[Rfam]
RNA sequence: CCGGUUCCGGUUCACGGUCGGGCAGCCCGCCCGACCGACCCGGCGGCC
Number, nucleotide and partner (000 for none) at each position: 001c000002c000003g048004g047005u046006u000007c043008c042009g041010g040011u000012u000013c000014a000015c037016g036017g035018u034019c033020g032021g031022g030023c029024a000025g000026c000027c000028c000029g023030c022031c021032c020033g019034a018035c017036c016037g015038a000039c000040c010041c009042g008043g007044c000045g000046g005047c004048c003
The family of this 48-nucleotide sequence from Haloactinopolyspora alba is "L31-Actinobacteria ribosomal protein leader". The source organism's lineage runs through Bacteria, Actinomycetes, Jiangellales, Jiangellaceae and Haloactinopolyspora. It scores 62 bits against the family's covariance model.